[Rfam]
The record is an 80-nucleotide RNA sequence, which matches "RT-18 RNA" in Rfam.
It is one of the family's seed sequences.
RNA sequence: CACCGCUUGGUGAAAAUAUUGCCGCAUAGGACGGGGUUUAGUAGGCCAUGGCUCGAACGAUCUCGCAGGCAAACAAGGAC
Numbered sequence: 001c002a003c004c005g006c007u008u009g010g011u012g013a014a015a016a017u018a019u020u021g022c023c024g025c026a027u028a029g030g031a032c033g034g035g036g037u038u039u040a041g042u043a044g045g046c047c048a049u050g051g052c053u054c055g056a057a058c059g060a061u062c063u064c065g066c067a068g069g070c071a072a073a074c075a076a077g078g079a080c
Base pairs, nucleotide, nucleotide: 001012002011003010004009020071021070022069023068032065033064034063035062036061037060038059044054045053046051
The family's consensus secondary structure is taken from published work. Rfam classes the family as a small RNA.